A member of the RNA family "TPP riboswitch aptamer (THI element)" from Truepera radiovictrix, 108 nucleotides long.
RNA sequence: CCUCGUCACCAGGGGUGCCUUCGGGCUGAGAGGACGGCGUCAGCGCGGUCCAACCCACCGAACCUGAUCCAGAUCAUACUGGCGUAGGGAGUGUGACGCGCGGACGCC
Numbered sequence: 001c002c003u004c005g006u007c008a009c010c011a012g013g014g015g016u017g018c019c020u021u022c023g024g025g026c027u028g029a030g031a032g033g034a035c036g037g038c039g040u041c042a043g044c045g046c047g048g049u050c051c052a053a054c055c056c057a058c059c060g061a062a063c064c065u066g067a068u069c070c071a072g073a074u075c076a077u078a079c080u081g082g083c084g085u086a087g088g089g090a091g092u093g094u095g096a097c098g099c100g101c102g103g104a105c106g107c108c
Stems, first nucleotide, its partner, number of pairs: 006096004012056003017026003033050003037046003063088004069082004

Notes:
Taxonomically the source falls in Truepera radiovictrix (Bacteria, Thermotogati, Deinococcota, Truepera). The match comes from Rfam's covariance-model search (61 bits).